About this RNA: The record is a 101-nucleotide sequence from Cephalotus follicularis, which matches "Small nucleolar RNA snoR99" in Rfam. The family has 9 seed sequences and 733 matches in Rfam 15.1. The family's consensus secondary structure was predicted with WAR. On this family, see Marker et al., Curr Biol 2002: "Experimental RNomics: identification of 140 candidates for small non-messenger RNAs in the plant Arabidopsis thaliana". NCBI's taxonomy places the organism under Eukaryota, Streptophyta, Streptophytina, Magnoliopsida, Cephalotus. A search with the family's covariance model found it, with a score of 42 bits.
Nucleotides: 101
Base pairs, nucleotide, nucleotide: 038094039093040092052081053080054079055078056077057076058075059074
Number, partner (000 for none) and nucleotide at each position: 001000g002000u003000g004000c005000a006000a007000u008000g009000g010000a011000g012000g013000g014000c015000a016000u017000c018000u019000u020000a021000g022000u023000u024000c025000c026000c027000a028000a029000u030000a031000u032000u033000g034000a035000u036000a037000u038094c039093c040092a041000u042000u043000c044000u045000u046000u047000a048000c049000u050000u051000u052081a053080u054079c055078a056077a057076c058075u059074g060000g061000u062000c063000u064000c065000a066000u067000u068000u069000c070000u071000u072000u073000g074059c075058a076057g077056u078055u079054g080053a081052u082000u083000u084000u085000c086000u087000c088000a089000g090000u091000u092040u093039g094038g095000u096000a097000u098000a099000u100000c101000a